[Rfam]
RNA sequence: UUCAUGGUUAGUUUUGCAGGUUUGCAUCCAGUUGUUCUUCUGGCUCACUGUGCAAAUCCAUGCAAAACUGAUUAUGGCA
Numbered sequence: 001u002u003c004a005u006g007g008u009u010a011g012u013u014u015u016g017c018a019g020g021u022u023u024g025c026a027u028c029c030a031g032u033u034g035u036u037c038u039u040c041u042g043g044c045u046c047a048c049u050g051u052g053c054a055a056a057u058c059c060a061u062g063c064a065a066a067a068c069u070g071a072u073u074a075u076g077g078c079a
Stems, first nucleotide, its partner, number of pairs: 002077017019059002021056007030049003
Dot-bracket structure: .((((((((((((((((((((((((((..(((..............)))))))))).)).)))))))))))))))))..
Description: Rfam assigns this 79-nucleotide RNA from Xenopus tropicalis to the family "mir-19 microRNA precursor family". For this family Rfam cites "Identification of novel genes coding for small expressed RNAs" (Lagos-Quintana et al., Science, 2001). The family has 106 seed sequences and 2,337 matches in Rfam 15.1. Pairs were carried over by alignment from the consensus structure, which was predicted with RNAalifold.